[Rfam]
RNA sequence: GGGCAUACCCAUAGACCUUGCCUACUACUCGCAGCCAGGGAGUGGGUACAGUUUGUGCCAGAGUAAUUUGGAGUUCAUGACAUCUGUAGGCAGCUUAAUCAGUGGCUGGGUAAGUUGCAGUACUCUUAACAUUC
Dot-bracket structure: ..(((((........(.((.(((.............))).)).).........)))))...........((((.(..((...........((((..........)))).........))..)))))........